[Rfam]
RNA sequence: GGAUGUGAGGGCGAUCUGGUUGCGACAUCUGUCACCCCAUUGAUCGCCAGGGUUGAUUCGGCUGAUCUGGCUGGCUAGGCGGGUGUCCCCUUCCUCCCUCACCGCUCCAUGUGCAUCCCUCCCGAAGCUGCACGCUCGGUCGAAGAGGACGACCAUCCCCGCUAGAGGAGGACCAGUCUUCAGUCAAGGGUAUACGAGUAGCUGCGCUCCCCUGCUAGAACCUCCAAACAAGCUCUCAAAGCUACAUUUUCAUGAGGAAGAAUGGAGAAUGAUCUGGAUGCUUUUGUGAAGGAUGGUCUUC
Numbered sequence: 001g002g003a004u005g006u007g008a009g010g011g012c013g014a015u016c017u018g019g020u021u022g023c024g025a026c027a028u029c030u031g032u033c034a035c036c037c038c039a040u041u042g043a044u045c046g047c048c049a050g051g052g053u054u055g056a057u058u059c060g061g062c063u064g065a066u067c068u069g070g071c072u073g074g075c076u077a078g079g080c081g082g083g084u085g086u087c088c089c090c091u092u093c094c095u096c097c098c099u100c101a102c103c104g105c106u107c108c109a110u111g112u113g114c115a116u117c118c119c120u121c122c123c124g125a126a127g128c129u130g131c132a133c134g135c136u137c138g139g140u141c142g143a144a145g146a147g148g149a150c151g152a153c154c155a156u157c158c159c160c161g162c163u164a165g166a167g168g169a170g171g172a173c174c175a176g177u178c179u180u181c182a183g184u185c186a187a188g189g190g191u192a193u194a195c196g197a198g199u200a201g202c203u204g205c206g207c208u209c210c211c212c213u214g215c216u217a218g219a220a221c222c223u224c225c226a227a228a229c230a231a232g233c234u235c236u237c238a239a240a241g242c243u244a245c246a247u248u249u250u251c252a253u254g255a256g257g258a259a260g261a262a263u264g265g266a267g268a269a270u271g272a273u274c275u276g277g278a279u280g281c282u283u284u285u286g287u288g289a290a291g292g293a294u295g296g297u298c299u300u301c
Stems, first nucleotide, its partner, number of pairs: 001108003005102007013093002018090002024087010035074002037070003042067004046062003116171002118168004122139004127135002141161002147158003201274001203272001208267001210265002213262001215260001222256003230249003
A member of the RNA family "7SK RNA" from Bos grunniens, 301 nucleotides long. Lineage of the source: Eukaryota > Deuterostomia > Euteleostomi > Sarcopterygii > Bos. It is annotated as a non-coding RNA gene. A search with the family's covariance model found it, with a score of 278 bits. 7SK was discovered as an abundant small nuclear RNA in the mid-70s but a possible function has only recently been suggested. Two independent studies have found that 7SK RNA binds the CDK9/cyclin T complex (known as elongation factor P-TEFb). P-TEFb activates transcription by phosphorylating the C-terminal domain of RNA polymerase II. This process is negatively regulated by the 7SK RNP. The secondary structure of 7SK RNA shown here was proposed by Wasserman and Steitz on the basis of chemical modification and enzymatic cleavage experiments. On this family, see Blencowe, Curr Biol 2002: "Transcription: surprising role for an elusive small nuclear RNA".